[Rfam]
RNA sequence: GCAUCCAGGGAUAGAAUAGCAGUUCACUUCAAAGUCCCCUUUUCUAUCCCUGGCACUGA
Numbered sequence: 001g002c003a004u005c006c007a008g009g010g011a012u013a014g015a016a017u018a019g020c021a022g023u024u025c026a027c028u029u030c031a032a033a034g035u036c037c038c039c040u041u042u043u044c045u046a047u048c049c050c051u052g053g054c055a056c057u058g059a
Stems, first nucleotide, its partner, number of pairs: 005053009015043002018040002022036001
Record summary
A member of the RNA family "mir-1544 microRNA precursor family" from Monodelphis domestica, 59 nucleotides long. Gene Ontology terms of the family: RISC complex and miRNA-mediated post-transcriptional gene silencing.